[Rfam]
RNA sequence: AUAAAAAAUGCCCUGCUGAACUGUUCAGCAGGGCCCUUCUAUGUCUAUAGUAGACAGAAGGCAAAGGGAGAGGAGAAACUGGAGAAAGAACUCAUGGGGAAUAUAAGUCUUCUCCGUGA
Numbered sequence: 001a002u003a004a005a006a007a008a009u010g011c012c013c014u015g016c017u018g019a020a021c022u023g024u025u026c027a028g029c030a031g032g033g034c035c036c037u038u039c040u041a042u043g044u045c046u047a048u049a050g051u052a053g054a055c056a057g058a059a060g061g062c063a064a065a066g067g068g069a070g071a072g073g074a075g076a077a078a079c080u081g082g083a084g085a086a087a088g089a090a091c092u093c094a095u096g097g098g099g100a101a102u103a104u105a106a107g108u109c110u111u112c113u114c115c116g117u118g119a
Stems, first nucleotide, its partner, number of pairs: 011033009034068005043055005080116004086111003090108003094104001
Overview
Shown here is a 119-nucleotide RNA from Bacillus sp. PK3_68, a member of the family "ylbH leader". By type it is a cis-regulatory leader. A search with the family's covariance model found it, with a score of 94 bits. For this family Rfam cites "New RNA motifs suggest an expanded scope for riboswitches in bacterial genetic control" (Barrick et al., Proc Natl Acad Sci U S A, 2004). Pairs were carried over by alignment from the consensus structure.